[Rfam]
Nucleotides: 146
Stems, first nucleotide, its partner, number of pairs: 008107005052081004057077002060074002085097004112142001115139011
Number, partner (000 for none) and nucleotide at each position: 001000a002000c003000c004000g005000a006000g007000u008107g009106g010105g011104a012103a013000u014000a015000a016000a017000g018000a019000g020000c021000u022000a023000a024000c025000u026000u027000a028000a029000u030000a031000u032000g033000a034000a035000u036000g037000g038000g039000g040000a041000a042000u043000a044000c045000c046000g047000a048000u049000a050000a051000a052081u053080c054079a055078a056000c057077g058076u059000u060074u061073u062000a063000g064000u065000a066000c067000a068000c069000u070000u071000a072000a073061a074060a075000u076058g077057c078055u079054u080053g081052a082000a083000a084000a085097u086096c087095a088094u089000u090000a091000a092000a093000a094088a095087u096086g097085a098000c099000a100000u101000a102000g103012u104011u105010c106009c107008c108000u109000a110000c111000c112142a113000u114000u115139u116138c117137c118136c119135u120134a121133c122132c123131a124130a125129a126000a127000u128000u129125u130124u131123u132122g133121g134120u135119a136118g137117g138116g139115a140000u141000u142112u143000u144000u145000u146000c